[Rfam]
RNA sequence: GGUUCUUGCUUCAACAGCGAUUGAACGGAACUUU
Numbered sequence: 001g002g003u004u005c006u007u008g009c010u011u012c013a014a015c016a017g018c019g020a021u022u023g024a025a026c027g028g029a030a031c032u033u034u
Base pairs, nucleotide, nucleotide: 001032002031003030004029005028006027008026010025011024012023013022014021015019
The record is a 34-nucleotide RNA sequence from Bagarius yarrelli, which matches "Iron response element I" in Rfam. By type it is a cis-regulatory element. Its family is annotated with response to iron ion in the Gene Ontology. A reference for the family is Zhang et al. (2001), "Repression of Manduca sexta ferritin synthesis by IRP1/IRE interaction", Insect Mol Biol. The match comes from Rfam's covariance-model search (37 bits). Rfam 15.1 lists 6,829 matches to the family in 599 species.